[Rfam]
A member of the RNA family "Selenocysteine transfer RNA" from Helicobacter suis, 96 nucleotides long. Rfam links the family to the GO term triplet codon-amino acid adaptor activity. For this family Rfam cites "Eukaryotic selenocysteine tRNA has the 9/4 secondary structure" (Mizutani and Goto, FEBS Lett, 2000).
RNA sequence: UGGAGAGCAAGCAACACUGGUGUGUGCCUUGGGCUUCAAACCCAAAGAGCGUUUAGGUGUUCUAAGCGCUGCGAAGUUCGAUUCUUUGGCUCUCUU
Numbered sequence: 001u002g003g004a005g006a007g008c009a010a011g012c013a014a015c016a017c018u019g020g021u022g023u024g025u026g027c028c029u030u031g032g033g034c035u036u037c038a039a040a041c042c043c044a045a046a047g048a049g050c051g052u053u054u055a056g057g058u059g060u061u062c063u064a065a066g067c068g069c070u071g072c073g074a075a076g077u078u079c080g081a082u083u084c085u086u087u088g089g090c091u092c093u094c095u096u
Stems, first nucleotide, its partner, number of pairs: 002095007011027003015024003029045005048070007073087004